[Rfam]
RNA sequence: CGUGUGGUAUUUUGUUGAGAGAAAUGCUUCUUUCAAGCAAGAUGGCGACACGGCCUAACGAGGU
Numbered sequence: 001c002g003u004g005u006g007g008u009a010u011u012u013u014g015u016u017g018a019g020a021g022a023a024a025u026g027c028u029u030c031u032u033u034c035a036a037g038c039a040a041g042a043u044g045g046c047g048a049c050a051c052g053g054c055c056u057a058a059c060g061a062g063g064u
Stems, first nucleotide, its partner, number of pairs: 001052005007046002011041006
RNA: L31-Gammaproteobacteria ribosomal protein leader
Organism: Psychromonas sp. CNPT3